The record is a 69-nucleotide RNA sequence from Sporosarcina limicola, which matches "Bacillus-plasmid RNA" in Rfam.
Pairs were carried over by alignment from the consensus structure, which is taken from published work.
By type it is a small RNA.
NCBI's taxonomy places the organism under Bacteria, Bacillota, Caryophanales, Caryophanaceae, Sporosarcina.
[Rfam]
RNA sequence: AGUGUCAACGGUAAAUGUCUGACUGGAGCAAAGCGGAAGGAAUUUAAGGAGUUGAUACGAGUCACUGAU
Numbered sequence: 001a002g003u004g005u006c007a008a009c010g011g012u013a014a015a016u017g018u019c020u021g022a023c024u025g026g027a028g029c030a031a032a033g034c035g036g037a038a039g040g041a042a043u044u045u046a047a048g049g050a051g052u053u054g055a056u057a058c059g060a061g062u063c064a065c066u067g068a069u
Base pairs, nucleotide, nucleotide: 002058003057004056005055006054007053008052009051